RNA sequence: UACACCCUUUUCACUUUGCAAAUUGGACUUAUGUCAUUAUUGGUCAUUCAAAUGGGGCAAAGGAAAUAUUCUUUUAAAACUCAAACAAACUGGGUGUCUUAUAUCCUGUCAGAGGAAACAAAU
Numbered sequence: 001u002a003c004a005c006c007c008u009u010u011u012c013a014c015u016u017u018g019c020a021a022a023u024u025g026g027a028c029u030u031a032u033g034u035c036a037u038u039a040u041u042g043g044u045c046a047u048u049c050a051a052a053u054g055g056g057g058c059a060a061a062g063g064a065a066a067u068a069u070u071c072u073u074u075u076a077a078a079a080c081u082c083a084a085a086c087a088a089a090c091u092g093g094g095u096g097u098c099u100u101a102u103a104u105c106c107u108g109u110c111a112g113a114g115g116a117a118a119c120a121a122a123u
Stems, first nucleotide, its partner, number of pairs: 032059004040051004069116006083099001085097002
Rfam assigns this 123-nucleotide RNA sequence from Molossus molossus to the family "Small nucleolar RNA SNORA27". ACA27 is a member of the H/ACA class of snoRNA that guide the sites of modification of uridines to pseudouridines. The base pairs follow the family's consensus structure.